[Rfam]
RNA sequence: CGAAUCCACUAGGGGCGCCCUUGCGGGCUGAGAUAAGGCGAAUCCGCCUUGGUCCCUUUGAACCUGAUCUGGGUAAUGCCAGCGUAGGAAAGUGGGAAGGCUUCGGA
Numbered sequence: 001c002g003a004a005u006c007c008a009c010u011a012g013g014g015g016c017g018c019c020c021u022u023g024c025g026g027g028c029u030g031a032g033a034u035a036a037g038g039c040g041a042a043u044c045c046g047c048c049u050u051g052g053u054c055c056c057u058u059u060g061a062a063c064c065u066g067a068u069c070u071g072g073g074u075a076a077u078g079c080c081a082g083c084g085u086a087g088g089a090a091a092g093u094g095g096g097a098a099g100g101c102u103u104c105g106g107a
Base pairs, nucleotide, nucleotide: 006095007094008093009092010091011057012056013055014054016051017028018027019026020025035050036049037048038047039046063088064087065086066085069082070081071080072079
RNA: TPP riboswitch aptamer (THI element)
Organism: Thermobacillus composti